[Rfam]
RNA sequence: UGCUUCCUGGGGUGAUCGCUUGCAUGUGAUGUCCCUGAGCCGAUGUUUACAAAUAAGGAUUCUACUUGCUCUCCGGUGUGCACGCCCAGUUUACUGGGAAGCCUAAAGAGAGUGACUUAGAAACCGCCUUGAACCUAAGGGUUCGAGGACUAACACACUGCGUCGACACUCUGGGAAGUCU
Dot-bracket structure: .(((((((((((((..((............((((.((((((...............((..((((....(.((.(.....((...(((((....)))))..)).....).).).)...))))..))..............)))))).)))).............)).)))))))))))))..
Numbered sequence: 001u002g003c004u005u006c007c008u009g010g011g012g013u014g015a016u017c018g019c020u021u022g023c024a025u026g027u028g029a030u031g032u033c034c035c036u037g038a039g040c041c042g043a044u045g046u047u048u049a050c051a052a053a054u055a056a057g058g059a060u061u062c063u064a065c066u067u068g069c070u071c072u073c074c075g076g077u078g079u080g081c082a083c084g085c086c087c088a089g090u091u092u093a094c095u096g097g098g099a100a101g102c103c104u105a106a107a108g109a110g111a112g113u114g115a116c117u118u119a120g121a122a123a124c125c126g127c128c129u130u131g132a133a134c135c136u137a138a139g140g141g142u143u144c145g146a147g148g149a150c151u152a153a154c155a156c157a158c159u160g161c162g163u164c165g166a167c168a169c170u171c172u173g174g175g176a177a178g179u180c181u
Stems, first nucleotide, its partner, number of pairs: 002179013017165002031150004036145006057125002061121004069114001071112001072110001074108001080102002085098005
Rfam assigns this 181-nucleotide RNA sequence from Aliidiomarina taiwanensis to the family "6S / SsrS RNA". NCBI's taxonomy places the organism under Bacteria, Pseudomonadati, Pseudomonadota, Gammaproteobacteria, Aliidiomarina. It is annotated as a non-coding RNA gene.